[Rfam]
RNA sequence: UAAAUAUAAAAGCAAAACAGUUGAAAGGCUGUGACGCAAAAACAUAAGUCUAAGGGGAAACCUAUGAUAGUUAUGUUUACCUCA
Numbered sequence: 001u002a003a004a005u006a007u008a009a010a011a012g013c014a015a016a017a018c019a020g021u022u023g024a025a026a027g028g029c030u031g032u033g034a035c036g037c038a039a040a041a042a043c044a045u046a047a048g049u050c051u052a053a054g055g056g057g058a059a060a061c062c063u064a065u066g067a068u069a070g071u072u073a074u075g076u077u078u079a080c081c082u083c084a
Stems, first nucleotide, its partner, number of pairs: 012037002017032006040078004045073003048068003055062002

c-di-GMP-I riboswitch aptamer: an 84-nucleotide RNA from Halanaerobium sp. DL-01. The family's consensus secondary structure is taken from published work. Rfam describes the family as follows. GEMM was predicted in a large-scale screen for bacterial structured RNA regulatory elements.